[Rfam]
RNA sequence: CUGCAGCCAGCUGCACCCACUCUGCUGGCCUCCGCGUGGGGCUGGGUGUGCAGUGGCUUCAAUAGUGGCCUCCGUGCUCCUGUCUGCAGCCGGCUGCUGGGAUGGGCUGCCCUAAGGGACCCUGGAGACAGCA
Number, nucleotide and partner (000 for none) at each position: 001c000002u052003g051004c050005a049006g000007c000008c000009a000010g000011c000012u000013g000014c000015a000016c000017c000018c000019a047020c046021u045022c044023u000024g000025c041026u040027g000028g000029c000030c000031u000032c000033c000034g000035c000036g000037u000038g000039g000040g026041g025042c000043u000044g022045g021046g020047u019048g000049u005050g004051c003052a002053g000054u000055g000056g000057c000058u000059u000060c000061a000062a000063u000064a000065g000066u000067g000068g000069c000070c000071u000072c000073c000074g000075u000076g121077c000078u119079c000080c000081u000082g000083u000084c000085u000086g000087c109088a108089g107090c106091c105092g000093g000094c000095u000096g000097c000098u000099g000100g000101g000102a000103u000104g000105g091106g090107c089108u088109g087110c000111c000112c000113u000114a000115a000116g000117g000118g000119a078120c000121c076122c000123u000124g000125g000126a000127g000128a000129c000130a000131g000132c000133a000
A member of the RNA family "Small nucleolar RNA SNORA70" from Erinaceus europaeus, 133 nucleotides long. Its family is annotated with nucleolus and RNA processing in the Gene Ontology. Pairs were carried over by alignment from the consensus structure, which was predicted with PFOLD. About the family: snoRNA U70 seems to be exclusive to mammals and is a member of the H/ACA class of snoRNA which contain H (ANANNA) and ACA box motifs. H/ACA box snoRNAs are involved in the conversion of uridines to pseudouridines (5-ribosyluracil) a constituent of structural RNAs (transfer, ribosomal, small nuclear, and small nucleolar). Rfam classes the family as an H/ACA-box small nucleolar RNA. A reference for the family is Charette and Gray (2000), "Pseudouridine in RNA: what, where, how, and why", IUBMB Life. A search with the family's covariance model found it, with a score of 71 bits.